[Rfam]
A member of the RNA family "Plant small nucleolar RNA U3" from Papaver somniferum, 217 nucleotides long. The family has 24 seed sequences and 3,759 matches in Rfam 15.1. The organism belongs to Papaver, within Eukaryota.

RNA sequence: ACGACCUUACUUGAACAGGAUCUGUUCUAUAGGCUCAUACCUCCUUAUCCUUGAGUUCUAAGGAGACAGGAUCCGCAGGCUGGUUGAUGAACCAGGACCGCACGACCAGAGCGUGAUUAAUGGUCGCAGGCCUAUGAUGUAGACCCUGCGGCUGUAGAUGAUCGUUCUCAGCUUGGCCUUGGCCUGCUGUGGUGGUCGUGCGGUUGUCUGACAGCCU
Numbered sequence: 001a002c003g004a005c006c007u008u009a010c011u012u013g014a015a016c017a018g019g020a021u022c023u024g025u026u027c028u029a030u031a032g033g034c035u036c037a038u039a040c041c042u043c044c045u046u047a048u049c050c051u052u053g054a055g056u057u058c059u060a061a062g063g064a065g066a067c068a069g070g071a072u073c074c075g076c077a078g079g080c081u082g083g084u085u086g087a088u089g090a091a092c093c094a095g096g097a098c099c100g101c102a103c104g105a106c107c108a109g110a111g112c113g114u115g116a117u118u119a120a121u122g123g124u125c126g127c128a129g130g131c132c133u134a135u136g137a138u139g140u141a142g143a144c145c146c147u148g149c150g151g152c153u154g155u156a157g158a159u160g161a162u163c164g165u166u167c168u169c170a171g172c173u174u175g176g177c178c179u180u181g182g183c184c185u186g187c188u189g190u191g192g193u194g195g196u197c198g199u200g201c202g203g204u205u206g207u208c209u210g211a212c213a214g215c216c217u
Base pairs, nucleotide, nucleotide: 001038003035005033006032007031013027014026015025016024017023018022043069046066048064049063050062051061052060053059078216079215080214081213082212097204098203099202100201101200102199103198104197105196106195107194108193110166111165112164113163120155121154122153123152124151125150126149127148128147129146130145132142133141134140135139169189170188171187172186175184176183177182
Description: Its Rfam clan is "U3 clan". Pairs were carried over by alignment from the consensus structure, which is taken from published work. From the family's description: Small nucleolar RNAs (snoRNAs) are involved in the processing and modification of rRNA in the nucleolus. There are two main classes of snoRNAs: the box C/D class, and the box H/ACA class. U3 snoRNA is a member of the box C/D class. Indeed, the box C/D element is a subset of the six short sequence elements found in all U3 snoRNAs, namely boxes A, A', B, C, C', and D. The U3 snoRNA secondary structure is characterised by a small 5' domain (with boxes A and A'), and a larger 3' domain (with boxes B, C, C', and D), the two domains being linked by a single-stranded hinge. Rfam classes the family as a C/D-box small nucleolar RNA.